[Rfam]
RNA: FMN riboswitch aptamer (RFN element)
Organism: Siminovitchia fortis
RNA sequence: AUUCAUCUUCGGGGCGUGGUGAAAUUCCCGACCGGCGGUAAUGAGACGACAGGUCUCUGAGCCCGCGAGCCUGGUAAAGGCAGGAUUUGGUGCAAUUCCAAAGCCGACAGUAUAGUCUGGAUGGGAGAAGAUGAAG
Numbered sequence: 001a002u003u004c005a006u007c008u009u010c011g012g013g014g015c016g017u018g019g020u021g022a023a024a025u026u027c028c029c030g031a032c033c034g035g036c037g038g039u040a041a042u043g044a045g046a047c048g049a050c051a052g053g054u055c056u057c058u059g060a061g062c063c064c065g066c067g068a069g070c071c072u073g074g075u076a077a078a079g080g081c082a083g084g085a086u087u088u089g090g091u092g093c094a095a096u097u098c099c100a101a102a103g104c105c106g107a108c109a110g111u112a113u114a115g116u117c118u119g120g121a122u123g124g125g126a127g128a129a130g131a132u133g134a135a136g
Stems, first nucleotide, its partner, number of pairs: 003134008018028002031116002033106002035066004061104002071080001086102005108119003